[Rfam]
RNA sequence: UGCAAUACCCAUCAAAGGCGUAGUUCCCCAACCUGGAGCUACUCCACCAUGUUGGCAAUGU
Numbered sequence: 001u002g003c004a005a006u007a008c009c010c011a012u013c014a015a016a017g018g019c020g021u022a023g024u025u026c027c028c029c030a031a032c033c034u035g036g037a038g039c040u041a042c043u044c045c046a047c048c049a050u051g052u053u054g055g056c057a058a059u060g061u
Stems, first nucleotide, its partner, number of pairs: 017045002020042008
Dot-bracket structure: ................((.((((((((.......)))))))).))................
The record is a 61-nucleotide RNA from Castanea mollissima, which matches "Plastid-psbN 5UTR RNA" in Rfam. The family's consensus secondary structure was predicted with LocARNA. Rfam classes the family as a cis-regulatory element. For this family Rfam cites "Retrograde signaling in plants: A critical review focusing on the GUN pathway and beyond" (Richter et al., Plant Commun, 2023). Plastid psbN is a non-coding RNA (ncRNA) recognised in plastids. It was reported as a conserved 11 stem-loop in the prime untranslated region (5UTR) of psbN genes. It has been reported that the motif is retained in a subset of mature transcripts in barley, which can suggests a possible role in transcript alternative 5 prime processing.